[Rfam]
RNA sequence: UCAGACAAUGGCAAACCUAUUGUAAAAUAGGGACGCAAAGUUACAGGUCCGGUAUGCUGAUAUUUUGCCGGAUGGCUGAACUGCCUGGA
Numbered sequence: 001u002c003a004g005a006c007a008a009u010g011g012c013a014a015a016c017c018u019a020u021u022g023u024a025a026a027a028u029a030g031g032g033a034c035g036c037a038a039a040g041u042u043a044c045a046g047g048u049c050c051g052g053u054a055u056g057c058u059g060a061u062a063u064u065u066u067g068c069c070g071g072a073u074g075g076c077u078g079a080a081c082u083g084c085c086u087g088g089a
Base pairs, nucleotide, nucleotide: 001089003086004085011036012035016031017030018029019028020027021026034075039082040081041080042079044078045077046076047073048072049071050070051069052068053067054066
Dot-bracket structure: (.((......((...((((((....))))))..[))..((((.(((((((((((...........)))))))).])))))))..))..)